The family of this 109-nucleotide RNA sequence from Montia fontana is "Plastid-psbA-1 3UTR RNA". Plastid psbA-1 is a non-coding RNA (ncRNA) present in plastids. It was identified in inverted repeat sequences in the 3 prime untranslate region (3UTR) of photosystem II quinone-binding protein (psbA). Pairs were carried over by alignment from the consensus structure, which was predicted with LocARNA. It is annotated as a cis-regulatory element. The family is grouped with related families in Rfam's "Plastid-psbA 3UTR RNA clan". Taxonomically the source falls in Montia (Eukaryota, Tracheophyta, Spermatophyta, Pentapetalae).
RNA sequence: UUGAAGCUCCAUCUACAAAUGGAUAAAAUUGCGUUCUUAGUUUAGUGUAUACGAGUUAAAGGGGCAGUACCUGUUUCUUGACAGAUCAAGAAAUUGGUAUUGCUCCUUU
Numbered sequence: 001u002u003g004a005a006g007c008u009c010c011a012u013c014u015a016c017a018a019a020u021g022g023a024u025a026a027a028a029u030u031g032c033g034u035u036c037u038u039a040g041u042u043u044a045g046u047g048u049a050u051a052c053g054a055g056u057u058a059a060a061g062g063g064g065c066a067g068u069a070c071c072u073g074u075u076u077c078u079u080g081a082c083a084g085a086u087c088a089a090g091a092a093a094u095u096g097g098u099a100u101u102g103c104u105c106c107u108u109u
Stems, first nucleotide, its partner, number of pairs: 008023005058109013073094001075092005